[Rfam]
RNA sequence: AACGUGUUCCGGGGUCGGUGUAAGUCCGAACCGGCGGUGACAGUCCGCGACCCCCCAGGCCUCAUGGCCGAAGGGUUGACUCGGUGAAAUUCCGAGACCGACAGUGAGAGUCUGGAUGGGAGGAACACGGC
Number, nucleotide and partner (000 for none) at each position: 001a000002a000003c129004g128005u127006g126007u125008u124009c123010c122011g000012g000013g000014g000015u000016c028017g027018g026019u000020g000021u000022a000023a000024g000025u000026c018027c017028g016029a000030a111031c110032c100033g099034g048035c047036g046037g045038u000039g000040a000041c000042a000043g098044u097045c037046c036047g035048c034049g000050a000051c000052c075053c074054c000055c000056c000057a000058g000059g000060c000061c000062u000063c000064a000065u000066g000067g000068c000069c000070g000071a000072a000073g000074g053075g052076u000077u000078g000079a000080c096081u095082c094083g093084g092085u000086g000087a000088a000089a000090u000091u000092c084093c083094g082095a081096g080097a044098c043099c033100g032101a000102c114103a113104g112105u000106g000107a000108g000109a000110g031111u030112c104113u103114g102115g000116a000117u000118g000119g000120g000121a000122g010123g009124a008125a007126c006127a005128c004129g003130g000131c000
This 131-nucleotide RNA from Tessaracoccus flavescens belongs to the Rfam family "FMN riboswitch aptamer (RFN element)".
The RFN element is a highly conserved domain that is found frequently in the 5'-untranslated regions of prokaryotic mRNAs that encode for flavin mononucleotide (FMN) biosynthesis and transport proteins.
Lineage of the source: Bacteria > Bacillati > Propionibacteriales > Propionibacteriaceae > Tessaracoccus.